[Rfam]
A member of the RNA family "small nucleolar RNA snoR134" from Vanilla planifolia, 140 nucleotides long. Gene Ontology terms of the family: RNA processing and nucleolus.
RNA sequence: AAGCACGGUCUACCCGGGCUGCUCUGAAACCUUAUGAAGAUGUUUGCCCCAAUGCUCGUGCAAGAGCCUUUAGCCGUUCUGUGUUGCAGUUCUGCUCGUUUUUUGCCCGACCGAUCUGUGUCUAAGAGACGGCUAAAUUC
Numbered sequence: 001a002a003g004c005a006c007g008g009u010c011u012a013c014c015c016g017g018g019c020u021g022c023u024c025u026g027a028a029a030c031c032u033u034a035u036g037a038a039g040a041u042g043u044u045u046g047c048c049c050c051a052a053u054g055c056u057c058g059u060g061c062a063a064g065a066g067c068c069u070u071u072a073g074c075c076g077u078u079c080u081g082u083g084u085u086g087c088a089g090u091u092c093u094g095c096u097c098g099u100u101u102u103u104u105g106c107c108c109g110a111c112c113g114a115u116c117u118g119u120g121u122c123u124a125a126g127a128g129a130c131g132g133c134u135a136a137a138u139u140c
Stems, first nucleotide, its partner, number of pairs: 003061006010054001016049004021043002023040003073133006083122001085120005095109001
A search with the family's covariance model found it, with a score of 71 bits. The organism belongs to Vanilla, within Eukaryota. On this family, see Chen and Wu, Nucleic Acids Res 2009: "Mining small RNA sequencing data: a new approach to identify small nucleolar RNAs in Arabidopsis".